RNA sequence: AAACCUGCUUGAUUACAGUGCUUCAUUUUAUGGAAGUACUGCCAUUAUCCUGCUGAAAAAAAAAUCUUGUGUUGAUCAUUUUUUAUUUUGCCUUCAUGAGGGUAAAAUUGUGAUGGACUAACAUGGACAAUU
Numbered sequence: 001a002a003a004c005c006u007g008c009u010u011g012a013u014u015a016c017a018g019u020g021c022u023u024c025a026u027u028u029u030a031u032g033g034a035a036g037u038a039c040u041g042c043c044a045u046u047a048u049c050c051u052g053c054u055g056a057a058a059a060a061a062a063a064a065u066c067u068u069g070u071g072u073u074g075a076u077c078a079u080u081u082u083u084u085a086u087u088u089u090g091c092c093u094u095c096a097u098g099a100g101g102g103u104a105a106a107a108u109u110g111u112g113a114u115g116g117a118c119u120a121a122c123a124u125g126g127a128c129a130a131u132u
Stems, first nucleotide, its partner, number of pairs: 003054001005052001007050001016041009067126008076117002083110001085108010
RNA: Small nucleolar RNA SNORA69